Notes:
The record is a 94-nucleotide RNA from Virgibacillus indicus, which matches "Guanidine-I riboswitch aptamer" in Rfam. About the family: This family represents a conserved RNA structure found upstream of the ykkC and yxkD genes in Bacillus subtilis and related genes in other bacteria. The function of this family is unclear although it has been suggested that it may function to switch on efflux pumps and detoxification systems in response to harmful environmental molecules. A search with the family's covariance model found it, with a score of 84 bits. For this family Rfam cites "An uncommon [K(+)(Mg(2+))2] metal ion triad imparts stability and selectivity to the Guanidine-I riboswitch" (Trachman RJ 3rd and Ferre-D'Amare, RNA, 2021). The base pairs follow the family's consensus structure. NCBI's taxonomy places the organism under Bacteria, Bacillati, Caryophanales, Bacillaceae, Virgibacillus.
[Rfam]
RNA sequence: AUAUAAGUUUUCUAGGGUUCCGCAGCUUUCUGCUGGUCUGGUCCGAGAGAAAACGCACUGUUCGUGUACACGGAGGGACAAAAGCCCGGGAGGA
Number, nucleotide and partner (000 for none) at each position: 001a000002u000003a000004u000005a000006a000007g054008u053009u052010u051011u050012c049013u000014a000015g044016g043017g000018u000019u000020c041021c040022g038023c035024a034025g033026c032027u000028u000029u000030c000031u000032g026033c025034u024035g023036g000037u000038c022039u000040g021041g020042u000043c016044c015045g000046a000047g000048a000049g012050a011051a010052a009053a008054c007055g067056c066057a065058c064059u000060g000061u000062u000063c000064g058065u057066g056067u055068a000069c089070a000071c092072g000073g000074a000075g087076g086077g085078a000079c000080a000081a000082a000083a000084g000085c077086c076087c075088g000089g069090g000091a000092g071093g000094a000